[Rfam]
RNA: RNase MRP
Organism: Madurella mycetomatis
RNA sequence: CCCUCGCCCAACAAAUCGCUAUUCGAAGCUCACAACGGAGAGAGCAUUGCUCUUUCGCACACCAAAAGCUUUGGGAGAAAGUCCCCGGACACCCACCUUCUCUGGAGGUGGUCGCGGAAACGCGCCGCCAUAGAAGCACAGCGGCUGAUCUCGGCCGCCAGCUUCCUGCCUAUCAGUUCCGCCCGGCUCAUUACUUCAAAGUCGGCCGCCUGCUUUGCUGCCGGUUAUCGGCUAUCCGUUUCCGGGUCAGAGACCACAUGGAUGAAGAUAUGAGUCCGCGCUCUGGCUGUCUGGGGCGAAUAUGCCGUACCGGUGGUGGGUAAUUGGUCGAUGGUGGGCUGCCGCUGGUUCGGUCUGGACAGGGAGCGUCACGGCUGGCUCGAGAGAUUUCGUCAUGAUGUCACAGAAAUGCGAUUGCUCGUCCUCUGAAAGGAGGAUCGAGUUACUCGACGGGGCUCAUUCUUGGUGCGAGG
Numbered sequence: 001c002c003c004u005c006g007c008c009c010a011a012c013a014a015a016u017c018g019c020u021a022u023u024c025g026a027a028g029c030u031c032a033c034a035a036c037g038g039a040g041a042g043a044g045c046a047u048u049g050c051u052c053u054u055u056c057g058c059a060c061a062c063c064a065a066a067a068g069c070u071u072u073g074g075g076a077g078a079a080a081g082u083c084c085c086c087g088g089a090c091a092c093c094c095a096c097c098u099u100c101u102c103u104g105g106a107g108g109u110g111g112u113c114g115c116g117g118a119a120a121c122g123c124g125c126c127g128c129c130a131u132a133g134a135a136g137c138a139c140a141g142c143g144g145c146u147g148a149u150c151u152c153g154g155c156c157g158c159c160a161g162c163u164u165c166c167u168g169c170c171u172a173u174c175a176g177u178u179c180c181g182c183c184c185g186g187c188u189c190a191u192u193a194c195u196u197c198a199a200a201g202u203c204g205g206c207c208g209c210c211u212g213c214u215u216u217g218c219u220g221c222c223g224g225u226u227a228u229c230g231g232c233u234a235u236c237c238g239u240u241u242c243c244g245g246g247u248c249a250g251a252g253a254c255c256a257c258a259u260g261g262a263u264g265a266a267g268a269u270a271u272g273a274g275u276c277c278g279c280g281c282u283c284u285g286g287c288u289g290u291c292u293g294g295g296g297c298g299a300a301u302a303u304g305c306c307g308u309a310c311c312g313g314u315g316g317u318g319g320g321u322a323a324u325u326g327g328u329c330g331a332u333g334g335u336g337g338g339c340u341g342c343c344g345c346u347g348g349u350u351c352g353g354u355c356u357g358g359a360c361a362g363g364g365a366g367c368g369u370c371a372c373g374g375c376u377g378g379c380u381c382g383a384g385a386g387a388u389u390u391c392g393u394c395a396u397g398a399u400g401u402c403a404c405a406g407a408a409a410u411g412c413g414a415u416u417g418c419u420c421g422u423c424c425u426c427u428g429a430a431a432g433g434a435g436g437a438u439c440g441a442g443u444u445a446c447u448c449g450a451c452g453g454g455g456c457u458c459a460u461u462c463u464u465g466g467u468g469c470g471a472g473g
Base pairs, nucleotide, nucleotide: 002473003472004471005470006469007468008466009465010464011463014416015415016414017413018412019411023075024073025072026071027070028069029068038054039053040052041051042050080457081456083455084454085453086452113124114123115122116121271387277382278381280379281378282377286375287374288373289372294369296367297366353360354359418442419441420440421439